[Rfam]
The family of this 100-nucleotide RNA sequence from Antarcticimicrobium sediminis is "TPP riboswitch aptamer (THI element)". Rfam's curators write: Vitamin B(1) in its active form thiamin pyrophosphate (TPP) is an essential coenzyme that is synthesised by coupling of pyrimidine and thiazole moieties in bacteria.
RNA sequence: UGCCCCACCUCGGGGUGCCUGAAAGGGCUGAGAUGCAUCGCGCGAACCCGUUGAACCUGACCCGGCUCAUACCGGCGUAGGGAAGGUUAAUGGACCUGCC
Dot-bracket structure: ......((((((((.(((((....))))......((.....)))..)))).....((((..((((......))))..))))..)))).............
NCBI's taxonomy places the organism under Bacteria, Alphaproteobacteria, Rhodobacterales, Paracoccaceae, Antarcticimicrobium. The match comes from Rfam's covariance-model search (69 bits).